[Rfam]
RNA sequence: GGAUGUGAGGGCAAUCUGGCUGUGACAUCCGUCACCCCGUUGAUCGCCAGGGUUGAUUUGGCUGAUCUGGCUGGCUAGGCGGGUGUCCCCUUCCUCCCUCACCGCCCCAUGUGCGUCCCUCCUGAAGCUGCGCGCUCGGUGGAAGAGGACGACCUUCCCCGAUAGAGACCUACCGUUCAUCGGUCAAGGGUAUACGGUAGCUGCGCUCCCCUGCUAGAACCUCCAAACAAGCUCAAGGUCCAUUUGUGGGAGAAGGUAGGGUAGUCAAGCUUCCAAUUAUUUUAAAUUAUUUUUUCUGGGGUUGUUUAGUCUGCCUGGGG
Numbered sequence: 001g002g003a004u005g006u007g008a009g010g011g012c013a014a015u016c017u018g019g020c021u022g023u024g025a026c027a028u029c030c031g032u033c034a035c036c037c038c039g040u041u042g043a044u045c046g047c048c049a050g051g052g053u054u055g056a057u058u059u060g061g062c063u064g065a066u067c068u069g070g071c072u073g074g075c076u077a078g079g080c081g082g083g084u085g086u087c088c089c090c091u092u093c094c095u096c097c098c099u100c101a102c103c104g105c106c107c108c109a110u111g112u113g114c115g116u117c118c119c120u121c122c123u124g125a126a127g128c129u130g131c132g133c134g135c136u137c138g139g140u141g142g143a144a145g146a147g148g149a150c151g152a153c154c155u156u157c158c159c160c161g162a163u164a165g166a167g168a169c170c171u172a173c174c175g176u177u178c179a180u181c182g183g184u185c186a187a188g189g190g191u192a193u194a195c196g197g198u199a200g201c202u203g204c205g206c207u208c209c210c211c212u213g214c215u216a217g218a219a220c221c222u223c224c225a226a227a228c229a230a231g232c233u234c235a236a237g238g239u240c241c242a243u244u245u246g247u248g249g250g251a252g253a254a255g256g257u258a259g260g261g262u263a264g265u266c267a268a269g270c271u272u273c274c275a276a277u278u279a280u281u282u283u284a285a286a287u288u289a290u291u292u293u294u295u296c297u298g299g300g301g302u303u304g305u306u307u308a309g310u311c312u313g314c315c316u317g318g319g320g
Base pairs, nucleotide, nucleotide: 001108002107005102006101007100008099009098010097011096014092018090019089024087025086026085027084028083029082030081031080032079033078035074036073037070038069039068042067043066044065045064046062047061048060119167120166121165122139123138124137125136127135128134140162142160147158148157149156200270201269202268206264207263209261210260211259212258213257214256221252222251223250224249227247228246229245230244231243295320296317298315299314301310302309303308
Dot-bracket structure: ((..(((((((..(...((....((((((((((.(((((..(((((((...........))).)))))))..))...)))))))))).)).)...)))))))....))..........(((((((.((.....))))))(.(....(((......))).).)..)))................................(((...((.((((((......((((..(((((...........))))).))))...)))))).))...)))........................((.((.(((....)))...)).)..)
Shown here is a 320-nucleotide RNA from Aramus guarauna, a member of the family "7SK RNA". Rfam describes the family as follows. 7SK was discovered as an abundant small nuclear RNA in the mid-70s but a possible function has only recently been suggested. Two independent studies have found that 7SK RNA binds the CDK9/cyclin T complex (known as elongation factor P-TEFb). P-TEFb activates transcription by phosphorylating the C-terminal domain of RNA polymerase II. This process is negatively regulated by the 7SK RNP. The secondary structure of 7SK RNA shown here was proposed by Wasserman and Steitz on the basis of chemical modification and enzymatic cleavage experiments. It scores 283 bits against the family's covariance model. Taxonomically the source falls in Aramus (Eukaryota, Chordata, Teleostomi, Neognathae). A reference for the family is Blencowe (2002), "Transcription: surprising role for an elusive small nuclear RNA", Curr Biol. Its Rfam clan is "7SK clan".